The record is a 111-nucleotide RNA sequence from Rheinheimera nanhaiensis, which matches "t44 RNA" in Rfam. This family consists of a number of bacterial RNA genes of between 135 and 170 bases in length. The t44 gene has been identified in several species of enteric bacteria but homologs have also been identified in Pseudomonas and Coxiella species. The t44 gene is found between the map and rpsB genes in all species in the full alignment apart from Shigella flexneri. The function of this RNA is unknown.
[Rfam]
RNA sequence: UGGCGUAAUUAAACAAAACACACAUGUAUCGACACAUAUUCCGGGGUGCUUUGCCCUGCACUGAACCACAGUCAGGCCAGAGUCGGCGUAUGGGAUACAUGGAGGCUUAAC
Numbered sequence: 001u002g003g004c005g006u007a008a009u010u011a012a013a014c015a016a017a018a019c020a021c022a023c024a025u026g027u028a029u030c031g032a033c034a035c036a037u038a039u040u041c042c043g044g045g046g047u048g049c050u051u052u053g054c055c056c057u058g059c060a061c062u063g064a065a066c067c068a069c070a071g072u073c074a075g076g077c078c079a080g081a082g083u084c085g086g087c088g089u090a091u092g093g094g095a096u097a098c099a100u101g102g103a104g105g106c107u108u109a110a111c
Stems, first nucleotide, its partner, number of pairs: 023101008035092005041086003048083005
Source information:
A search with the family's covariance model found it, with a score of 74 bits. It is annotated as a small RNA.